[Rfam]
RNA sequence: AGGGCUAUGUGUAACUGGCGAACGCGGAUUACCGCGAGGGAGCACAUAGUUUAUAAGCCGUUCGCCUGGGCAGAGGUA
Numbered sequence: 001a002g003g004g005c006u007a008u009g010u011g012u013a014a015c016u017g018g019c020g021a022a023c024g025c026g027g028a029u030u031a032c033c034g035c036g037a038g039g040g041a042g043c044a045c046a047u048a049g050u051u052u053a054u055a056a057g058c059c060g061u062u063c064g065c066c067u068g069g070g071c072a073g074a075g076g077u078a
Stems, first nucleotide, its partner, number of pairs: 003051010015039002017066005024035004057071003
RNA: ZMP/ZTP riboswitch aptamer (pfl RNA motif)
Organism: Bacilli bacterium VT-13-104